[Rfam]
RNA: c-di-AMP riboswitch aptamer (ydaO/yuaA leader)
Organism: Nonomuraea glycinis
RNA sequence: GUGUUCGUCCCGCCUAAUCCACUCAUGUUGCGUGGAGCCGGGGACCCAACUUCUUCCCGGGGCGAAUCGGCAUCGCCGUAGGGCCACUUCCAGGCCCGAGCCCGUCAGCUAACCCGGUAGGCCGCAUGGAAGGACACA
Numbered sequence: 001g002u003g004u005u006c007g008u009c010c011c012g013c014c015u016a017a018u019c020c021a022c023u024c025a026u027g028u029u030g031c032g033u034g035g036a037g038c039c040g041g042g043g044a045c046c047c048a049a050c051u052u053c054u055u056c057c058c059g060g061g062g063c064g065a066a067u068c069g070g071c072a073u074c075g076c077c078g079u080a081g082g083g084c085c086a087c088u089u090c091c092a093g094g095c096c097c098g099a100g101c102c103c104g105u106c107a108g109c110u111a112a113c114c115c116g117g118u119a120g121g122c123c124g125c126a127u128g129g130a131a132g133g134a135c136a137c138a
Stems, first nucleotide, its partner, number of pairs: 012122003018036005037118006047059001060103003068078004081097004